[Rfam]
Shown here is a 264-nucleotide RNA from Ruminococcus sp. CAG:382, a member of the family "Bacterial large signal recognition particle RNA". Its Rfam clan is "SRP clan". The organism belongs to Ruminococcus, within Bacteria. The match comes from Rfam's covariance-model search (152 bits). The base pairs follow the family's consensus structure, which is taken from published work.
RNA sequence: CCAUACUAACCGGGGAGUCAGCGGUGCCUUGUCGCCUGCAACCCGCUAUAGCAGGGGUGAUAUGCCAUUUGAGGGCGGUUCAUGUACAGCCGCGCUGUUCGGAAGCCGUUGAGAGACGGGUCUUACGCGAUUGUCUGCCGCGAACCAUGUCAGGUGGGGAACCAAGCAGCAUUAAACGGAUUUGCCAAUGCGCCGUAAGGUCACCUGUUUUGAGGACAAUGUUCAGCACCCGUGUAUGUGCCUCGUUCGAUUAUGGAUGUAUGG
Numbered sequence: 001c002c003a004u005a006c007u008a009a010c011c012g013g014g015g016a017g018u019c020a021g022c023g024g025u026g027c028c029u030u031g032u033c034g035c036c037u038g039c040a041a042c043c044c045g046c047u048a049u050a051g052c053a054g055g056g057g058u059g060a061u062a063u064g065c066c067a068u069u070u071g072a073g074g075g076c077g078g079u080u081c082a083u084g085u086a087c088a089g090c091c092g093c094g095c096u097g098u099u100c101g102g103a104a105g106c107c108g109u110u111g112a113g114a115g116a117c118g119g120g121u122c123u124u125a126c127g128c129g130a131u132u133g134u135c136u137g138c139c140g141c142g143a144a145c146c147a148u149g150u151c152a153g154g155u156g157g158g159g160a161a162c163c164a165a166g167c168a169g170c171a172u173u174a175a176a177c178g179g180a181u182u183u184g185c186c187a188a189u190g191c192g193c194c195g196u197a198a199g200g201u202c203a204c205c206u207g208u209u210u211u212g213a214g215g216a217c218a219a220u221g222u223u224c225a226g227c228a229c230c231c232g233u234g235u236a237u238g239u240g241c242c243u244c245g246u247u248c249g250a251u252u253a254u255g256g257a258u259g260u261a262u263g264g
Base pairs, nucleotide, nucleotide: 001264002263003262004261005260006259009058010057011056012030013029014028015027017025018024019023035055036054037053038052039051065256066255067254068253073248074247075246076245077244081240082239083238084237085236086235087234088233092229095226096225097224100221103220106215107214113211114210115209116208117207118206119205120204121203122199123198124197125196126195127194128190129189131188132187133186135184138179139178140177147172148171149170150169155164156163157162